GcvB RNA: a 199-nucleotide RNA sequence from Proteus myxofaciens.
RNA sequence: ACUUCCUAAGCCGGAACGAAAAGUUGUGUUGUAGCAAUACUUCAAAACUUUUGGCUUUGUGGUUGUGAUGUUGUGUUUGCAAGUUGUCUGGAAAUUCCAGACUUAGUAGCGUUUGCUACUGUUUUUUUCACUUCCUGUACAUUUACCCUGUCUGUCCAUAGUGAUUUUAUAAUGCACCGCCAAGGCGGUGCUUUUUUUA
Numbered sequence: 001a002c003u004u005c006c007u008a009a010g011c012c013g014g015a016a017c018g019a020a021a022a023g024u025u026g027u028g029u030u031g032u033a034g035c036a037a038u039a040c041u042u043c044a045a046a047a048c049u050u051u052u053g054g055c056u057u058u059g060u061g062g063u064u065g066u067g068a069u070g071u072u073g074u075g076u077u078u079g080c081a082a083g084u085u086g087u088c089u090g091g092a093a094a095u096u097c098c099a100g101a102c103u104u105a106g107u108a109g110c111g112u113u114u115g116c117u118a119c120u121g122u123u124u125u126u127u128u129c130a131c132u133u134c135c136u137g138u139a140c141a142u143u144u145a146c147c148c149u150g151u152c153u154g155u156c157c158a159u160a161g162u163g164a165u166u167u168u169a170u171a172a173u174g175c176a177c178c179g180c181c182a183a184g185g186c187g188g189u190g191c192u193u194u195u196u197u198u199a
Stems, first nucleotide, its partner, number of pairs: 009056004015052002021050005027044002031040003086102006105120006141170002174191007

Pairs were carried over by alignment from the consensus structure, which is taken from published work. The literature on the family includes a 2000 paper in Mol Microbiol by Urbanowski et al., "The gcvB gene encodes a small untranslated RNA involved in expression of the dipeptide and oligopeptide transport systems in Escherichia coli". Taxonomically the source falls in Proteus myxofaciens (Bacteria, Pseudomonadota, Enterobacterales, Proteus). Its family is annotated with mRNA binding and regulation of gene expression in the Gene Ontology. The gcvB gene encodes a small untranslated RNA involved in expression of the dipeptide and oligopeptide transport systems in Escherichia coli. Included several unknown homologues in alignment (Bateman A pers obs). It base-pairs with SorC. This interaction triggers the degradation of GcvB by RNase E, alleviating the GcvB-mediated mRNA repression of other amino acid-related transport and metabolic genes. By type it is a non-coding RNA gene.